[Rfam]
RNA sequence: GCUUACCUUCGGGGCAGGGUGAAAAUCCCAACCGGCGGUGAUCGAGAGGCGGAAGCGUAACUGGUUUAACCAGCAUGCUCUCGUUUUCUCGUCAGUCCGUGACCCGGGCCAUCCCUUGCAAGAGCGAUUCUUCGCAUUGCAGGGGAUGGAACGGUGGACCUGGUGCAAAUCCGGGACCGACAGUAUAGUCUGGAUGGGAGAAGGAGACA
Numbered sequence: 001g002c003u004u005a006c007c008u009u010c011g012g013g014g015c016a017g018g019g020u021g022a023a024a025a026u027c028c029c030a031a032c033c034g035g036c037g038g039u040g041a042u043c044g045a046g047a048g049g050c051g052g053a054a055g056c057g058u059a060a061c062u063g064g065u066u067u068a069a070c071c072a073g074c075a076u077g078c079u080c081u082c083g084u085u086u087u088c089u090c091g092u093c094a095g096u097c098c099g100u101g102a103c104c105c106g107g108g109c110c111a112u113c114c115c116u117u118g119c120a121a122g123a124g125c126g127a128u129u130c131u132u133c134g135c136a137u138u139g140c141a142g143g144g145g146a147u148g149g150a151a152c153g154g155u156g157g158a159c160c161u162g163g164u165g166c167a168a169a170u171c172c173g174g175g176a177c178c179g180a181c182a183g184u185a186u187a188g189u190c191u192g193g194a195u196g197g198g199a200g201a202a203g204g205a206g207a208c209a
Stems, first nucleotide, its partner, number of pairs: 003207002006204005017029003031189002033179002035100004104154002159175005181192003

Record summary:
This 209-nucleotide RNA sequence from Paenibacillus catalpae belongs to the Rfam family "FMN riboswitch aptamer (RFN element)". NCBI's taxonomy places the organism under Bacteria, Bacillati, Bacillota, Paenibacillaceae, Paenibacillus.